Description
Shown here is a 90-nucleotide sequence from Chenopodium quinoa, a member of the family "Small nucleolar RNA snoR26". A search with the family's covariance model found it, with a score of 77 bits. By type it is a C/D-box small nucleolar RNA. Gene Ontology terms of the family: nucleolus and RNA processing. Taxonomically the source falls in Chenopodium (Eukaryota, Viridiplantae, Pentapetalae, Amaranthaceae).
[Rfam]
RNA sequence: UGGGCAUCAAUGAAGAGUAAAUCCUAUGUUAUCCUUGCACAUUGAUUUACAAGUGAUGAAAAUUAGGGGGAAUUUUGAUCUGAGAUGCUC
Numbered sequence: 001u002g003g004g005c006a007u008c009a010a011u012g013a014a015g016a017g018u019a020a021a022u023c024c025u026a027u028g029u030u031a032u033c034c035u036u037g038c039a040c041a042u043u044g045a046u047u048u049a050c051a052a053g054u055g056a057u058g059a060a061a062a063u064u065a066g067g068g069g070g071a072a073u074u075u076u077g078a079u080c081u082g083a084g085a086u087g088c089u090c
Base pairs, nucleotide, nucleotide: 002090003089004088005087006086007085008084